[Rfam]
RNA: freshwater-2 RNA
Nucleotides: 083
Stems, first nucleotide, its partner, number of pairs: 001017006020041007042056004
Number, partner (000 for none) and nucleotide at each position: 001017a002016c003015u004014c005013a006012c007000a008000u009000g010000g011000g012006g013005u014004g015003a016002g017001u018000u019000u020041u021040a022039u023038g024037c025036a026035g027000a028000a029000a030000u031000c032000c033000a034000a035026c036025u037024g038023c039022g040021u041020a042056c043055g044054g045053c046000c047000u048000a049000g050000a051000a052000c053045g054044c055043c056042g057000u058000g059000u060000u061000u062000u063000u064000c065000a066000u067000a068000a069000g070000g071000a072000g073000a074000a075000a076000a077000c078000a079000a080000a081000a082000u083000g